[Rfam]
RNA sequence: GAGUCCGACGGGCCUAGUCCACGCAGCCGCUGCGUGGAGCCGGGGACCCACCUUUCCCCCCGGGGCGAAUCGGCAGCGCUUCUCCCCCAAGCGAAGCACCGCCGUAGGGCUACUUCCAGGCCCGAGCCCGUCAGCUAACCCGGCAGGCCUCGUGGAAGGACAAU
Dot-bracket structure: ..........((((...((((((((.....))))))))((((((....(............)(((.....((((..........................))))..((((.........))))...))).........)))))).))))...............